glmS glucosamine-6-phosphate activated ribozyme aptamer: a 165-nucleotide RNA from Peribacillus deserti. It is annotated as a riboswitch. Pairs were carried over by alignment from the consensus structure, which is taken from published work. The organism belongs to Peribacillus, within Bacteria.
[Rfam]
RNA sequence: CAUCAACCAAAAGCGCCAGGACUAAGCGGGACGACAAGGCUUAGUUGACGAGGUGGAGGAUUAUCGAUUUUUCGGCGGGUACCUCCCGGUUGCCUGUACACAACCGCAAUUUUUCUCUUAAAACAAAGGGGUAACUCUUUGAACAAAGGGGGAAGAGCUGUACAG
Numbered sequence: 001c002a003u004c005a006a007c008c009a010a011a012a013g014c015g016c017c018a019g020g021a022c023u024a025a026g027c028g029g030g031a032c033g034a035c036a037a038g039g040c041u042u043a044g045u046u047g048a049c050g051a052g053g054u055g056g057a058g059g060a061u062u063a064u065c066g067a068u069u070u071u072u073c074g075g076c077g078g079g080u081a082c083c084u085c086c087c088g089g090u091u092g093c094c095u096g097u098a099c100a101c102a103a104c105c106g107c108a109a110u111u112u113u114u115c116u117c118u119u120a121a122a123a124c125a126a127a128g129g130g131g132u133a134a135c136u137c138u139u140u141g142a143a144c145a146a147a148g149g150g151g152g153a154a155g156a157g158c159u160g161u162a163c164a165g
Base pairs, nucleotide, nucleotide: 020046021045022044023043024042025041026040027039055086056085057084058083059082064075065074066073067072087106088105089104090103091102092101110156111155112154113153114152115151116150124141125140126139127138128137129136130135